Annotation:
The record is a 599-nucleotide RNA from Ovis aries, which matches "c-sis internal ribosome entry site (IRES)" in Rfam. This family represents the c-sis 5'-UTR which contains three modules that can individually mediate internal ribosome entry. The source organism's lineage runs through Eukaryota, Opisthokonta, Gnathostomata, Boreoeutheria and Ovis. The base pairs follow the family's consensus structure, which was predicted with ILM. A reference for the family is Sella et al. (1999), "Differentiation-induced internal translation of c-sis mRNA: analysis of the cis elements and their differentiation-linked binding to the hnRNP C protein", Mol Cell Biol. Gene Ontology term of the family: ribosome binding.
[Rfam]
RNA sequence: CGGAGCAGCCGCAGCUCGCAGCCCGCAGAGGACGUCCAGAGCGGCGAGAGGGCGGGCAGACGGACCGACAGACUCGCGCCGCGUCCACCUGUCUGCCGGGCGCCGCCCAGGGCGCAGCGGACACGCCGCGCGCGCGGAGCAGCCGUGCCCGCCGCCCGGGCCCCGCGCCAGGGCGCACACGCUCCGGCCCCCCCCACCCGGCCCGGGCGGGAGUUUGCACCUCUCCCUGCCCGGGUACUCGAGCCGCCGCUGCAGAACCAACUUUGGAAAAAGUUUUUUUGGGGAGACUUUGGCUUUGAGGUGCCCAGCUUUGCGCUUUCCGACUUCAGGGACCUUUCCAGAAAAUGUUGCAAAAAAGCUAAGCCAGCGGGCAGAGGAAAACGCCUUUAGCCGGCGAGUGAAGACGAACCAUCGACUGCCGUGUUCUUUUUCCUCUUGGAGGUUGGAGUCCCCUGGGCGCCCCCACACGGCUAGAAGCCUCGGCUGGUUCGCGACGCAGCCCCCCGGCCGGUGGAUUGGCUCGCUCGGGCUCGGGAUCCGCCCAGUAGCGGCCUCGGACCCCUGUCCCGCGCCCAGCUCCAACCCCAACGACGGAGCCC
Number, nucleotide and partner (000 for none) at each position: 001c000002g259003g258004a000005g253006c252007a251008g250009c249010c000011g247012c246013a000014g244015c243016u242017c241018g240019c000020a239021g238022c000023c000024c000025g226026c000027a224028g223029a222030g221031g220032a000033c175034g174035u173036c172037c171038a000039g169040a000041g168042c167043g166044g000045c000046g163047a000048g161049a000050g000051g107052g106053c105054g103055g000056g101057c100058a000059g000060a000061c098062g097063g096064a000065c095066c000067g093068a092069c091070a090071g089072a000073c000074u000075c083076g082077c081078g000079c000080c000081g077082c076083g075084u000085c000086c000087a000088c000089c071090u070091g069092u068093c067094u000095g065096c063097c062098g061099g000100g057101c056102g000103c054104c000105g053106c052107c051108c000109a000110g000111g000112g157113c000114g155115c154116a000117g152118c151119g150120g149121a000122c147123a146124c145125g144126c137127c136128g135129c134130g000131c000132g000133c000134g129135c128136g127137g126138a000139g000140c000141a000142g000143c000144c125145g124146u123147g122148c000149c120150c119151g118152c117153c000154g115155c114156c000157c112158g000159g000160g000161c048162c000163c046164c000165g000166c043167g042168c041169c039170a000171g037172g036173g035174c034175g033176c000177a000178c217179a216180c000181g214182c213183u212184c211185c210186g000187g208188c207189c206190c205191c000192c000193c201194c200195c000196a000197c000198c000199c000200g194201g193202c000203c000204c000205g190206g189207g188208c187209g000210g185211g184212a183213g182214u181215u000216u179217g178218c000219a000220c031221c030222u029223c028224u027225c000226c025227c000228u000229g000230c000231c000232c000233g000234g000235g000236u000237a000238c021239u020240c018241g017242a016243g015244c014245c000246g012247c011248c000249g009250c008251u007252g006253c005254a000255g000256a000257a000258c003259c002260a000261a274262c273263u272264u271265u270266g000267g000268a000269a000270a265271a264272a263273g262274u261275u000276u000277u000278u000279u000280u587281g586282g585283g584284g583285a000286g580287a578288c000289u576290u575291u000292g573293g572294c571295u000296u000297u000298g000299a000300g525301g524302u523303g522304c000305c000306c000307a000308g520309c519310u515311u514312u513313g512314c511315g509316c000317u000318u000319u000320c507321c506322g505323a000324c000325u000326u000327c000328a000329g503330g502331g501332a000333c499334c000335u000336u000337u000338c000339c000340a000341g000342a000343a000344a000345a000346u000347g000348u000349u000350g359351c358352a000353a000354a000355a000356a000357a000358g351359c350360u000361a000362a000363g395364c394365c393366a000367g391368c390369g000370g000371g388372c000373a386374g385375a000376g382377g000378a000379a000380a000381a000382c376383g000384c000385c374386u373387u000388u371389a000390g368391c367392c000393g365394g364395c363396g000397a000398g497399u496400g495401a000402a000403g492404a000405c491406g490407a489408a488409c487410c486411a485412u483413c482414g481415a480416c474417u473418g471419c470420c469421g468422u467423g466424u465425u447426c446427u445428u000429u442430u441431u440432c439433c438434u000435c000436u000437u000438g433439g432440a431441g430442g429443u000444u000445g427446g426447a425448g458449u457450c456451c455452c000453c000454u000455g451456g450457g449458c448459g000460c000461c000462c000463c000464c000465a424466c423467a422468c421469g420470g419471c418472u000473a417474g416475a000476a000477g000478c000479c000480u415481c414482g413483g412484c000485u411486g410487g409488u408489u407490c406491g405492c403493g000494a000495c400496g399497c398498a000499g333500c000501c331502c330503c329504c000505c322506g321507g320508c000509c315510g000511g314512u313513g312514g311515a310516u000517u000518g000519g309520c308521u000522c303523g302524c301525u300526c000527g567528g566529g565530c564531u000532c000533g561534g560535g559536a000537u558538c557539c556540g555541c000542c000543c000544a554545g552546u551547a000548g000549c000550g000551g546552c545553c000554u544555c540556g539557g538558a537559c535560c534561c533562c000563u000564g530565u529566c528567c527568c000569g000570c000571g294572c293573c292574c000575a290576g289577c000578u287579c000580c286581a000582a000583c284584c283585c282586c281587a280588a000589c596590g000591a000592c000593g000594g000595a000596g589597c000598c000599c000